[Rfam]
RNA sequence: UUGGCUCAAAUCAAUGUAGGACCUACACUUUGGAAAUGAAACCCACAUAAAGUGAUAGGAUAUACAUUGAUUUCACCCAA
Number, nucleotide and partner (000 for none) at each position: 001u080002u079003g078004g077005c000006u075007c000008a073009a072010a071011u070012c069013a068014a067015u066016g065017u064018a063019g000020g000021a000022c000023c058024u057025a056026c054027a053028c052029u051030u050031u049032g048033g000034a000035a000036a000037u000038g000039a000040a000041a000042c000043c000044c000045a000046c000047a000048u032049a031050a030051a029052g028053u027054g026055a000056u025057a024058g023059g000060a000061u000062a000063u018064a017065c016066a015067u014068u013069g012070a011071u010072u009073u008074c000075a006076c000077c004078c003079a002080a001
This 80-nucleotide sequence from Medicago truncatula belongs to the Rfam family "MIR5269 microRNA precursor family". The base pairs follow the family's consensus structure, which was predicted with RNAalifold. NCBI's taxonomy places the organism under Eukaryota, Embryophyta, Euphyllophyta, Gunneridae, Medicago.